[Rfam]
RNA sequence: GGGAGUAGAUAAGUGCUGGUGUGCUUACCAGUCUUCAAAACUGUGUUGUGGUGCUAAUAACAUCAUGGGUGGGUUCGAUUCCCACAUGCUCCC
Numbered sequence: 001g002g003g004a005g006u007a008g009a010u011a012a013g014u015g016c017u018g019g020u021g022u023g024c025u026u027a028c029c030a031g032u033c034u035u036c037a038a039a040a041c042u043g044u045g046u047u048g049u050g051g052u053g054c055u056a057a058u059a060a061c062a063u064c065a066u067g068g069g070u071g072g073g074u075u076c077g078a079u080u081c082c083c084a085c086a087u088g089c090u091c092c093c
Base pairs, nucleotide, nucleotide: 001093002092003091004090005089006088007087008085011026012025013024014023015022016021029043030042031041032040047067048066049065050064051063070084071083072082073081
RNA: Selenocysteine transfer RNA
Organism: Clostridium tetanomorphum